[Rfam]
RNA sequence: CGGAAUACAAGGCAAACCCGUCGUGAGGCGGGGACGCAAAGCCAGGGACCUUUCCUACGGAAGGUCGCCCAGUCACCCAG
Number, nucleotide and partner (000 for none) at each position: 001c000002g000003g000004a000005a000006u000007a000008c000009a000010a000011g000012g037013c036014a000015a000016a000017c032018c031019c030020g029021u028022c027023g000024u000025g000026a000027g022028g021029c020030g019031g018032g017033g000034a000035c000036g013037c012038a000039a000040a000041g073042c072043c000044a000045g070046g069047g068048a065049c064050c063051u062052u061053u060054c059055c000056u000057a000058c000059g054060g053061a052062a051063g050064g049065u048066c000067g000068c047069c046070c045071a000072g042073u041074c000075a000076c000077c000078c000079a000080g000
Background:
A member of the RNA family "c-di-GMP-I riboswitch aptamer" from Baekduia soli, 80 nucleotides long. From the family's description: GEMM was predicted in a large-scale screen for bacterial structured RNA regulatory elements. Pairs were carried over by alignment from the consensus structure, which is taken from published work.